[Rfam]
RNA sequence: CUGUGGAUAUUCUCACUGUCCUGAUAUUUUAAUAAUUAGAGAAGGCUAAACAUUUGCUAAAUGAAGACCAUACACAUGUCCAUAGACCUAGUUCUCAUCUAAAUCUAGUUUUAUAAAUGCUGAUGAUAAAC
Numbered sequence: 001c002u003g004u005g006g007a008u009a010u011u012c013u014c015a016c017u018g019u020c021c022u023g024a025u026a027u028u029u030u031a032a033u034a035a036u037u038a039g040a041g042a043a044g045g046c047u048a049a050a051c052a053u054u055u056g057c058u059a060a061a062u063g064a065a066g067a068c069c070a071u072a073c074a075c076a077u078g079u080c081c082a083u084a085g086a087c088c089u090a091g092u093u094c095u096c097a098u099c100u101a102a103a104u105c106u107a108g109u110u111u112u113a114u115a116a117a118u119g120c121u122g123a124u125g126a127u128a129a130a131c
Stems, first nucleotide, its partner, number of pairs: 003057003016044002019041001021039005067124001069122002073119001083107004089101003
The record is a 131-nucleotide RNA sequence from Capra hircus, which matches "Small nucleolar RNA SNORA72" in Rfam. Rfam classes the family as an H/ACA-box small nucleolar RNA. U72 is a member of the H/ACA class of snoRNAs. The snoRNA gene is located in intron 4 of the ribosomal L30 protein gene in human, mouse and chicken. Taxonomically the source falls in Capra (Eukaryota, Craniata, Theria, Pecora). On this family, see Ganot et al., Genes Dev 1997: "The family of box ACA small nucleolar RNAs is defined by an evolutionarily conserved secondary structure and ubiquitous sequence elements essential for RNA accumulation". A search with the family's covariance model found it, with a score of 95 bits.